RNA: Pestivirus internal ribosome entry site (IRES) including 5'UTR SLI
RNA sequence: GUAUAAGGGAUGGGAUCCUUGUACAUUUCAUACCUCUACCGAACAGUAUUUGGGAGUUCUUUUUACCUGCCGUACAGUAUUGGGAUUUAAACAACUAAAUGUUUACAAAUCACGUGUGUGGUGGCGGGGAUAGACCGUGCCAGCGGUUGUGUACCAGCAAUCACAAACAACACGUGGACUGCAAUCCAGGAGAGCACCUAGGUCUGUUAAGUUGUGAGUACACGACAUUCGUCAAUGAGUCAGCUGGUAAGGAUCACCCACCUGGAUACUCAUGUGGACGAGGGAGUUUCCCAAACAGUAACCUACUCUGGGGGAGGGGUCCCCCAGAGACAAUUUGUCUCAAAUAUGGGAUAAGUUGGGGUGUGCUGCCUGACAGGGUCUCGGCUGAUAGCCUGGAAAGCAGUAUAAUAUCAGUUGAAUUGGCAU
Numbered sequence: 001g002u003a004u005a006a007g008g009g010a011u012g013g014g015a016u017c018c019u020u021g022u023a024c025a026u027u028u029c030a031u032a033c034c035u036c037u038a039c040c041g042a043a044c045a046g047u048a049u050u051u052g053g054g055a056g057u058u059c060u061u062u063u064u065a066c067c068u069g070c071c072g073u074a075c076a077g078u079a080u081u082g083g084g085a086u087u088u089a090a091a092c093a094a095c096u097a098a099a100u101g102u103u104u105a106c107a108a109a110u111c112a113c114g115u116g117u118g119u120g121g122u123g124g125c126g127g128g129g130a131u132a133g134a135c136c137g138u139g140c141c142a143g144c145g146g147u148u149g150u151g152u153a154c155c156a157g158c159a160a161u162c163a164c165a166a167a168c169a170a171c172a173c174g175u176g177g178a179c180u181g182c183a184a185u186c187c188a189g190g191a192g193a194g195c196a197c198c199u200a201g202g203u204c205u206g207u208u209a210a211g212u213u214g215u216g217a218g219u220a221c222a223c224g225a226c227a228u229u230c231g232u233c234a235a236u237g238a239g240u241c242a243g244c245u246g247g248u249a250a251g252g253a254u255c256a257c258c259c260a261c262c263u264g265g266a267u268a269c270u271c272a273u274g275u276g277g278a279c280g281a282g283g284g285a286g287u288u289u290c291c292c293a294a295a296c297a298g299u300a301a302c303c304u305a306c307u308c309u310g311g312g313g314g315a316g317g318g319g320u321c322c323c324c325c326a327g328a329g330a331c332a333a334u335u336u337g338u339c340u341c342a343a344a345u346a347u348g349g350g351a352u353a354a355g356u357u358g359g360g361g362u363g364u365g366c367u368g369c370c371u372g373a374c375a376g377g378g379u380c381u382c383g384g385c386u387g388a389u390a391g392c393c394u395g396g397a398a399a400g401c402a403g404u405a406u407a408a409u410a411u412c413a414g415u416u417g418a419a420u421u422g423g424c425a426u
Base pairs, nucleotide, nucleotide: 001024002023003022004021005020006019007018008017009016111176112175113174114173115172116171121161122160124158125157126155127154131149132148133147135146136145137144178404179403180402181401182400185397186396187395188394189393190392191367192366194364195363196362197361198360199359200304201303202302203301205297206296207295208294211226212225213224214223215222216221229281230280231279232278235273236272237271238270239269240265241264242263243262245260246259247258283291284290285289307328308327309326310325311324312323313322314321315320337352338351339350340349341348342347368379369378370377371376382417383416384415385414386413387412388411389410